[Rfam]
Nucleotides: 070
Stems, first nucleotide, its partner, number of pairs: 006065002009062007018054011
Number, partner (000 for none) and nucleotide at each position: 001000g002000g003000a004000g005000a006065u007064a008000c009062u010061g011060c012059g013058c014057a015056u016000c017000a018054c019053u020052a021051a022050g023049u024048u025047g026046c027045a028044c029000g030000u031000u032000g033000u034000c035000g036000c037000g038000g039000c040000u041000u042000c043000c044028g045027u046026g047025c048024a049023a050022u051021u052020u053019a054018g055000c056015g057014u058013g059012u060011g061010c062009g063000a064007u065006a066000c067000u068000u069000u070000c

Shown here is a 70-nucleotide RNA sequence from Otus sunia, a member of the family "mir-32 microRNA precursor family".
The match comes from Rfam's covariance-model search (77 bits).
The source organism's lineage runs through Eukaryota, Teleostomi, Sauropsida, Strigiformes and Otus.
For this family Rfam cites "Discovery and profiling of bovine microRNAs from immune-related and embryonic tissues" (Coutinho et al., Physiol Genomics, 2007).